[Rfam]
RNA: DUF3577 RNA
RNA sequence: CGUUGGAUAGCACCCCAGGGUGUGAAAUCGUCUGCAAUCCGGACAGCACCGUACGGUGUGACGCUUUUUUUCAACCGGCUGCUUCGCAGCUGCUCA
Numbered sequence: 001c002g003u004u005g006g007a008u009a010g011c012a013c014c015c016c017a018g019g020g021u022g023u024g025a026a027a028u029c030g031u032c033u034g035c036a037a038u039c040c041g042g043a044c045a046g047c048a049c050c051g052u053a054c055g056g057u058g059u060g061a062c063g064c065u066u067u068u069u070u071u072c073a074a075c076c077g078g079c080u081g082c083u084u085c086g087c088a089g090c091u092g093c094u095c096a
Stems, first nucleotide, its partner, number of pairs: 010023005029063004047058004077091006